[Rfam]
RNA sequence: GUUGGUGUAGCGUGGCUCGUAGUUCAGGAAAAUGAAACCUCGGCCUUGGUCAAUGGUGUGGAAGAGCGGAUUCCAAGAGAACAAUGCCAGCAUCUUUGGCUUUAGCGUGUUGGCGACAAACAUCUUGCCAGAGGCAAUCAUAUUGGCGCGUUG
Numbered sequence: 001g002u003u004g005g006u007g008u009a010g011c012g013u014g015g016c017u018c019g020u021a022g023u024u025c026a027g028g029a030a031a032a033u034g035a036a037a038c039c040u041c042g043g044c045c046u047u048g049g050u051c052a053a054u055g056g057u058g059u060g061g062a063a064g065a066g067c068g069g070a071u072u073c074c075a076a077g078a079g080a081a082c083a084a085u086g087c088c089a090g091c092a093u094c095u096u097u098g099g100c101u102u103u104a105g106c107g108u109g110u111u112g113g114c115g116a117c118a119a120a121c122a123u124c125u126u127g128c129c130a131g132a133g134g135c136a137a138u139c140a141u142a143u144u145g146g147c148g149c150g151u152u153g
Base pairs, nucleotide, nucleotide: 002035003034004033006032008030011027014024015023037057038056039055042051043050044049065152066151067150068149071081072080073079086147087146088145089144090143092141093140100131101130103127104126105125107123108122110119111118112117

Shown here is a 153-nucleotide sequence from Pseudorhodobacter sp., a member of the family "Ruegeria cis2 sRNA".
The family's consensus secondary structure was predicted with RNAfold.
A search with the family's covariance model found it, with a score of 66 bits.
By type it is a small RNA.
Taxonomically the source falls in Pseudorhodobacter (Bacteria, Pseudomonadati, Alphaproteobacteria, Rhodobacterales).
The literature on the family includes a 2016 paper in Front Microbiol by Rivers et al., "Experimental Identification of Small Non-Coding RNAs in the Model Marine Bacterium Ruegeria pomeroyi DSS-3".